Overview: Shown here is a 246-nucleotide sequence from Allochromatium vinosum, a member of the family "HNH endonuclease-associated RNA and ORF (HEARO) RNA". Lineage of the source: Bacteria > Pseudomonadati > Gammaproteobacteria > Allochromatium > Allochromatium vinosum. The family's consensus secondary structure is taken from published work. Rfam classes the family as a non-coding RNA gene.
[Rfam]
RNA sequence: GUCAACUACCCCGCCCUGAAGGGCGGAGCUUGUGAGAGCAAGCUGGGUUGACCAGCCUCAGCCCGCCUGACCAGGACGGUCGAAAGGGGCUACGUAUGCAACAGGUCGCUAAGACUCACCGGCGGAUGCUUCCUCAGUCCGCCGCUCUGAAAGGUCGAGAUCAUGCAGGCGAAAGGUAAAGCGUCGAAGGUUUUGAUCGCCGCGCCAGCGGGAGCCGGUUGCACACAUUGGCGAGGGGAGCGUGUG
Numbered sequence: 001g002u003c004a005a006c007u008a009c010c011c012c013g014c015c016c017u018g019a020a021g022g023g024c025g026g027a028g029c030u031u032g033u034g035a036g037a038g039c040a041a042g043c044u045g046g047g048u049u050g051a052c053c054a055g056c057c058u059c060a061g062c063c064c065g066c067c068u069g070a071c072c073a074g075g076a077c078g079g080u081c082g083a084a085a086g087g088g089g090c091u092a093c094g095u096a097u098g099c100a101a102c103a104g105g106u107c108g109c110u111a112a113g114a115c116u117c118a119c120c121g122g123c124g125g126a127u128g129c130u131u132c133c134u135c136a137g138u139c140c141g142c143c144g145c146u147c148u149g150a151a152a153g154g155u156c157g158a159g160a161u162c163a164u165g166c167a168g169g170c171g172a173a174a175g176g177u178a179a180a181g182c183g184u185c186g187a188a189g190g191u192u193u194u195g196a197u198c199g200c201c202g203c204g205c206c207a208g209c210g211g212g213a214g215c216c217g218g219u220u221g222c223a224c225a226c227a228u229u230g231g232c233g234a235g236g237g238g239a240g241c242g243u244g245u246g
Stems, first nucleotide, its partner, number of pairs: 001052007010028001012025002015022002029042004055232003060091005094226002097223006104216001116150002120144008130240006153198010168185004
Dot-bracket structure: (((((((..(.((.((....)).))..)((((......))))...)))))))..(((..(((((......................)))))..((.((((((.(...........((..((((((((..[[[[[[.))))))))....))..((((((((((.....((((..........))))...)))))))))).................).)))))).))...)))..]]]]]]......

The literature on the family includes a 2009 paper in Nature by Weinberg et al., "Exceptional structured noncoding RNAs revealed by bacterial metagenome analysis".